Annotation
Shown here is a 78-nucleotide RNA from Jaculus jaculus, a member of the family "mir-3473 microRNA precursor family". The source organism's lineage runs through Eukaryota, Teleostomi, Amniota, Rodentia and Jaculus. It scores 74 bits against the family's covariance model. Rfam 15.1 lists 1,094 matches to the family in 20 species.
[Rfam]
RNA sequence: ACUGCUAAGCCAUCUCUCCAGCCCCAACAAAAUAUUUUUUAAAAAGAAAAAAAUGGACUGGAGAGAUGCCUUAGCAGU
Numbered sequence: 001a002c003u004g005c006u007a008a009g010c011c012a013u014c015u016c017u018c019c020a021g022c023c024c025c026a027a028c029a030a031a032a033u034a035u036u037u038u039u040u041a042a043a044a045a046g047a048a049a050a051a052a053a054u055g056g057a058c059u060g061g062a063g064a065g066a067u068g069c070c071u072u073a074g075c076a077g078u
Stems, first nucleotide, its partner, number of pairs: 002077008011068011023056002